[Rfam]
RNA: Small nucleolar RNA SNORA31
Organism: Oryctolagus cuniculus
RNA sequence: CUGCAUCCACUGAUAGAUAGACUUUGAACAACUUGCUGUUGUUCUUUUGGUUUGUACUGGGAUGUGAAAGAAAAAUCCCUGCCCUUUCUGUCUUUGUGGCAGCCCAGAUUGAACUGGGGAAUAUAUUU
Numbered sequence: 001c002u003g004c005a006u007c008c009a010c011u012g013a014u015a016g017a018u019a020g021a022c023u024u025u026g027a028a029c030a031a032c033u034u035g036c037u038g039u040u041g042u043u044c045u046u047u048u049g050g051u052u053u054g055u056a057c058u059g060g061g062a063u064g065u066g067a068a069a070g071a072a073a074a075a076u077c078c079c080u081g082c083c084c085u086u087u088c089u090g091u092c093u094u095u096g097u098g099g100c101a102g103c104c105c106a107g108a109u110u111g112a113a114c115u116g117g118g119g120a121a122u123a124u125a126u127u128u
Stems, first nucleotide, its partner, number of pairs: 002066007011056002018054006026044007076120006084111001087108001088102005